Rfam assigns this 92-nucleotide sequence from Trifolium medium to the family "Small nucleolar RNA snoR14". A search with the family's covariance model found it, with a score of 51 bits. The pairing is the family consensus, mapped onto this sequence. It is annotated as a C/D-box small nucleolar RNA. Clan: SNORD110 clan.
RNA sequence: GUGAAUUGUUUCACAAUUCUUAUAAUAAAGUUGUCUGUCAAUCCUCUGAUAUUCGUGUGAUGCAUUCAUGAAUUCCAACAGGUUCUGAUCAC
Numbered sequence: 001g002u003g004a005a006u007u008g009u010u011u012c013a014c015a016a017u018u019c020u021u022a023u024a025a026u027a028a029a030g031u032u033g034u035c036u037g038u039c040a041a042u043c044c045u046c047u048g049a050u051a052u053u054c055g056u057g058u059g060a061u062g063c064a065u066u067c068a069u070g071a072a073u074u075c076c077a078a079c080a081g082g083u084u085c086u087g088a089u090c091a092c
Stems, first nucleotide, its partner, number of pairs: 001092004

For this family Rfam cites "Multiple snoRNA gene clusters from Arabidopsis" (Brown et al., RNA, 2001).
Rfam links the family to the GO terms RNA processing and nucleolus.